[Rfam]
RNA sequence: GGAGAGGUGGCGGAAUUGGUAGACGCGCUACUUUGAGGGGGUAGUGAAAAUUGUUUCGUGGGAGUUCGAGUCUCCUCCUCUUCA
Numbered sequence: 001g002g003a004g005a006g007g008u009g010g011c012g013g014a015a016u017u018g019g020u021a022g023a024c025g026c027g028c029u030a031c032u033u034u035g036a037g038g039g040g041g042u043a044g045u046g047a048a049a050a051u052u053g054u055u056u057c058g059u060g061g062g063a064g065u066u067c068g069a070g071u072c073u074c075c076u077c078c079u080c081u082u083c084a
Stems, first nucleotide, its partner, number of pairs: 001083007010026003028044005060076005
RNA: tRNA
Organism: Prevotella sp. oral taxon 299